[Rfam]
RNA: Plastid-ccsA-ndhD-1 3UTR RNA
Organism: Corchorus capsularis
RNA sequence: AAGCUGUCAAGAACCUUUUGAAUCCGUGAUUCAAAAGGUUCUAACAAA
Numbered sequence: 001a002a003g004c005u006g007u008c009a010a011g012a013a014c015c016u017u018u019u020g021a022a023u024c025c026g027u028g029a030u031u032c033a034a035a036a037g038g039u040u041c042u043a044a045c046a047a048a
Base pairs, nucleotide, nucleotide: 010042011041012040013039014038015037016036017035018034019033020032021031022030023029024028
Dot-bracket structure: .........(((((((((((((((...)))))))))))))))......